Source information:
Shown here is an 81-nucleotide RNA from Myotis lucifugus, a member of the family "mir-574 microRNA precursor family". A search with the family's covariance model found it, with a score of 93 bits. The family's consensus secondary structure was predicted with RNAalifold. The organism belongs to Myotis, within Eukaryota. The family is grouped with related families in Rfam's "mir-574 microRNA precursor clan". Rfam 15.1 lists 4,084 matches to the family in 7 species.
[Rfam]
RNA sequence: AGGCCUGGAGGGAGAAGCAGGUUCUGAUCUGUAGCUUCUGUGGCAGCUGUUGAUCAGCAUUUGCCUCUCUCUUUCGCUCCG
Numbered sequence: 001a002g003g004c005c006u007g008g009a010g011g012g013a014g015a016a017g018c019a020g021g022u023u024c025u026g027a028u029c030u031g032u033a034g035c036u037u038c039u040g041u042g043g044c045a046g047c048u049g050u051u052g053a054u055c056a057g058c059a060u061u062u063g064c065c066u067c068u069c070u071c072u073u074u075c076g077c078u079c080c081g
Stems, first nucleotide, its partner, number of pairs: 008073008017064004022059001024057006032049004
Dot-bracket structure: .......((((((((.((((.(.((((((..((((..........))))..)))))).).)))).))))))))........